[Rfam]
Source information
The record is a 73-nucleotide RNA sequence from Dysgonomonas gade, which matches "Bacteroidetes FopS (family of paralogous sRNAs)" in Rfam. By type it is a small RNA. The family has 12 seed sequences and 822 matches in Rfam 15.1. A search with the family's covariance model found it, with a score of 73 bits.

RNA sequence: GUGUUUUUCAUGGUAUUAGAUUUUAAGGUUAAUAAUGAAGAUUGGUUGUUGUGAAACAACCUUUUCUUUUUAU
Numbered sequence: 001g002u003g004u005u006u007u008u009c010a011u012g013g014u015a016u017u018a019g020a021u022u023u024u025a026a027g028g029u030u031a032a033u034a035a036u037g038a039a040g041a042u043u044g045g046u047u048g049u050u051g052u053g054a055a056a057c058a059a060c061c062u063u064u065u066c067u068u069u070u071u072a073u
Stems, first nucleotide, its partner, number of pairs: 044061007